Shown here is a 54-nucleotide RNA from Juglans regia, a member of the family "Plastid-ccsA-ndhD-1 3UTR RNA". The family's consensus secondary structure was predicted with LocARNA. Rfam describes the family as follows. Plastid-ccsA-ndhD-1 is a non-coding RNA (ncRNA) recognised in plastids. It is annotated as a cis-regulatory element. The literature on the family includes a 2004 paper in Nucleic Acids Res by Zandueta-Criado and Bock, "Surprising features of plastid ndhD transcripts: addition of non-encoded nucleotides and polysome association of mRNAs with an unedited start codon". Lineage of the source: Eukaryota > Streptophyta > Euphyllophyta > Fagales > Juglans. It is one of the family's seed sequences.
[Rfam]
RNA sequence: UAAGCCAGCGAGAACCUUUUGAAUCACUAGUUUGAUUCAAAAGGUUCUUACAAA
Number, nucleotide and partner (000 for none) at each position: 001u000002a000003a000004g000005c000006c000007a000008g051009c000010g049011a048012g047013a046014a045015c044016c043017u042018u041019u040020u039021g038022a037023a036024u035025c034026a033027c000028u000029a000030g000031u000032u000033u026034g025035a024036u023037u022038c021039a020040a019041a018042a017043g016044g015045u014046u013047c012048u011049u010050a000051c008052a000053a000054a000